Guanidine-I riboswitch aptamer: a 105-nucleotide RNA from Gilvimarinus sp. DA14. The match comes from Rfam's covariance-model search (98 bits). The pairing is the family consensus, mapped onto this sequence. The organism belongs to Gilvimarinus, within Bacteria.
[Rfam]
RNA sequence: UAAAUAGAAAGCUAGGGUUCCGGUGGGAUAAUCCUCCCACGACUGGUCCGAGAGCUUUCGACCUUCGAAGCGAGGGUUACACGGCGGGAUAAAAGCCCGGGAGAC
Numbered sequence: 001u002a003a004a005u006a007g008a009a010a011g012c013u014a015g016g017g018u019u020c021c022g023g024u025g026g027g028a029u030a031a032u033c034c035u036c037c038c039a040c041g042a043c044u045g046g047u048c049c050g051a052g053a054g055c056u057u058u059c060g061a062c063c064u065u066c067g068a069a070g071c072g073a074g075g076g077u078u079a080c081a082c083g084g085c086g087g088g089a090u091a092a093a094a095g096c097c098c099g100g101g102a103g104a105c
Base pairs, nucleotide, nucleotide: 007059008058009057010056011055012054015049016048020046021045022043023040024039025038026037027036028035060078061077062076063075064074065073066072067071080100082103086098087097088096